About this RNA
This 70-nucleotide RNA sequence from Octodon degus belongs to the Rfam family "Small nucleolar RNA U2-30". The family has 21 seed sequences and 664 matches in Rfam 15.1. The family's RNA type in Rfam is C/D-box small nucleolar RNA. NCBI's taxonomy places the organism under Eukaryota, Bilateria, Amniota, Euarchontoglires, Octodon.

RNA sequence: GUUCAAUGACGAAAAGGUUUUACUGCUGACCUUUAUAUCUAUGAAGGCUUUUAUACUUGACCUGAUAUCA
Numbered sequence: 001g002u003u004c005a006a007u008g009a010c011g012a013a014a015a016g017g018u019u020u021u022a023c024u025g026c027u028g029a030c031c032u033u034u035a036u037a038u039c040u041a042u043g044a045a046g047g048c049u050u051u052u053a054u055a056c057u058u059g060a061c062c063u064g065a066u067a068u069c070a
Stems, first nucleotide, its partner, number of pairs: 001069001003067001013034007